RNA sequence: GUGCUUCAGGGAUGAACAAGUCCCUGAUAUGUAAUCUUAUCCAUCUAUUUCACUUUGUCAGCAAUCUAUUUUGUAUUUUGCUGAUCAUUUGCGGAUGGAACAUCC
Numbered sequence: 001g002u003g004c005u006u007c008a009g010g011g012a013u014g015a016a017c018a019a020g021u022c023c024c025u026g027a028u029a030u031g032u033a034a035u036c037u038u039a040u041c042c043a044u045c046u047a048u049u050u051c052a053c054u055u056u057g058u059c060a061g062c063a064a065u066c067u068a069u070u071u072u073g074u075a076u077u078u079u080g081c082u083g084a085u086c087a088u089u090u091g092c093g094g095a096u097g098g099a100a101c102a103u104c105c
Stems, first nucleotide, its partner, number of pairs: 040099006057085008
RNA: Small nucleolar RNA snoR99